This 138-nucleotide RNA sequence from Thermanaeromonas toyohensis belongs to the Rfam family "Molybdenum/Tungsten riboswitch aptamer (Moco RNA motif)". Lineage of the source: Bacteria > Neomoorellales > Neomoorellaceae > Thermanaeromonas > Thermanaeromonas toyohensis. Rfam links the family to the GO terms molybdenum ion binding, regulation of gene expression and tungstate binding.
[Rfam]
RNA sequence: AAUUUAGUUUACCUCCGAGCCUUCCUGGCCUAAGGGAAGCCUCCUAUGGCAGGUUGGCCCGGGCUUUUUAAGCCCGCGGGGUAUAGCAGGGAAACCGCUAUGCCUUCCGUUUCGAAAAGGAGGAUUAAAGGGGUGAAA
Numbered sequence: 001a002a003u004u005u006a007g008u009u010u011a012c013c014u015c016c017g018a019g020c021c022u023u024c025c026u027g028g029c030c031u032a033a034g035g036g037a038a039g040c041c042u043c044c045u046a047u048g049g050c051a052g053g054u055u056g057g058c059c060c061g062g063g064c065u066u067u068u069u070a071a072g073c074c075c076g077c078g079g080g081g082u083a084u085a086g087c088a089g090g091g092a093a094a095c096c097g098c099u100a101u102g103c104c105u106u107c108c109g110u111u112u113c114g115a116a117a118a119g120g121a122g123g124a125u126u127a128a129a130g131g132g133g134u135g136a137a138a
Base pairs, nucleotide, nucleotide: 003132004131012123013122014121015120016119019058020057021056024053025052026051028050029049030048034045035044036043037042060076061075062074063073064072079105080104081103082102083101084100085099086098087097089096090095106115107114